About this RNA: The family of this 70-nucleotide RNA sequence from Neomonachus schauinslandi is "Small nucleolar RNA SNORD113/SNORD114 family". A reference for the family is Cavaille et al. (2002), "Identification of tandemly-repeated C/D snoRNA genes at the imprinted human 14q32 domain reminiscent of those at the Prader-Willi/Angelman syndrome region", Hum Mol Genet. Its Rfam clan is "SNORD74 clan". Rfam links the family to the GO terms nucleolus and RNA processing. It scores 76 bits against the family's covariance model. The source organism's lineage runs through Eukaryota, Metazoa, Tetrapoda, Caniformia and Neomonachus. Rfam's curators write: The imprinted human domain at 14q32 contains two clusters of tandemly repeated small nucleolar RNAs named 14q(I) and 14q(II) snoRNAs. These two clusters are named SNORD113 and SNORD114 respectively in the HGNC approved gene symbol nomenclature. The snoRNAs found in both clusters are clearly related and are represented here by a single family. These snoRNAs are intron encoded and are processed from the tissue-specific non-coding human MEG8 RNA, which lies downstream of the imprinted genes DLK1 and GTL2. snoRNAs 14q(I) and 14q(II) differ from previously identified C/D box snoRNAs in their expression profiles and lack of complementarity to rRNA and snRNA. Homologues of these snoRNAs are found in the imprinted non-coding mouse transcript Rian, and in the rat non-coding Bsr (brain-specific repetitive) RNA.
RNA sequence: UGGACCAAUGAUGAUGGCUGGUGUCGUAUGAAUCAUGGUUGAUGAAUAGGUCUGGAACUCUGAGGUCCAA
Number, nucleotide and partner (000 for none) at each position: 001u000002g068003g067004a066005c065006c064007a000008a000009u000010g000011a000012u000013g000014a000015u000016g000017g000018c000019u000020g000021g000022u000023g000024u000025c000026g000027u000028a000029u000030g000031a000032a000033u000034c000035a000036u000037g000038g000039u000040u000041g000042a000043u000044g000045a000046a000047u000048a000049g000050g000051u000052c000053u000054g000055g000056a000057a000058c000059u000060c000061u000062g000063a000064g006065g005066u004067c003068c002069a000070a000